[Rfam]
RNA sequence: UGUGUGAUUUAGGUAGUUUCAAGUUGUUGGGCUGGACGCUUAUCACAGGAACCUGAAACUACCUGAAUUACUCC
Numbered sequence: 001u002g003u004g005u006g007a008u009u010u011a012g013g014u015a016g017u018u019u020c021a022a023g024u025u026g027u028u029g030g031g032c033u034g035g036a037c038g039c040u041u042a043u044c045a046c047a048g049g050a051a052c053c054u055g056a057a058a059c060u061a062c063c064u065g066a067a068u069u070a071c072u073c074c
Stems, first nucleotide, its partner, number of pairs: 004071016023052003027048003031044001

The record is a 74-nucleotide RNA from Oncorhynchus kisutch, which matches "mir-196 microRNA precursor family" in Rfam.
Rfam links the family to the GO terms gene silencing by miRNA and RISC complex.
The family's consensus secondary structure was predicted with PFOLD.
On this family, see Lim et al., Science 2003: "Vertebrate microRNA genes".